About this RNA
Shown here is a 95-nucleotide RNA from Pseudohaliea rubra, a member of the family "SAM-I/IV (S-adenosyl methionine) riboswitch aptamer". The family's consensus secondary structure is taken from published work. The family is grouped with related families in Rfam's "SAM clan".
[Rfam]
RNA sequence: GAGCGGCAUCAAGAAGGGUAUUCACCCGCCAACCGCCCGCUCCGGGAACGGUGGACCAAAGAUGCGCCAGACCACUGGAACACAUAGGAGCCCCC
Numbered sequence: 001g002a003g004c005g006g007c008a009u010c011a012a013g014a015a016g017g018g019u020a021u022u023c024a025c026c027c028g029c030c031a032a033c034c035g036c037c038c039g040c041u042c043c044g045g046g047a048a049c050g051g052u053g054g055a056c057c058a059a060a061g062a063u064g065c066g067c068c069a070g071a072c073c074a075c076u077g078g079a080a081c082a083c084a085u086a087g088g089a090g091c092c093c094c095c
Base pairs, nucleotide, nucleotide: 006065007064008063009062010061017026018025019024029054030053033051034050035049037046038045041090043088067078068077069076070075